[Rfam]
RNA sequence: CGCACGCGGACAUCAGGCCCUCAAGGCCAUCCGGUGCCCCUCUCCAUUGGUGGGGGUACGUCCGCGGAGGCUCAACCGGAGAAUACCAAAGUG
Numbered sequence: 001c002g003c004a005c006g007c008g009g010a011c012a013u014c015a016g017g018c019c020c021u022c023a024a025g026g027c028c029a030u031c032c033g034g035u036g037c038c039c040c041u042c043u044c045c046a047u048u049g050g051u052g053g054g055g056g057u058a059c060g061u062c063c064g065c066g067g068a069g070g071c072u073c074a075a076c077c078g079g080a081g082a083a084u085a086c087c088a089a090a091g092u093g
Base pairs, nucleotide, nucleotide: 001069003067005066006065007064008063009062010061011060016028017027018026019025036057037056038055039054040053042052
RNA: rpsB sRNA
Organism: Xanthobacter dioxanivorans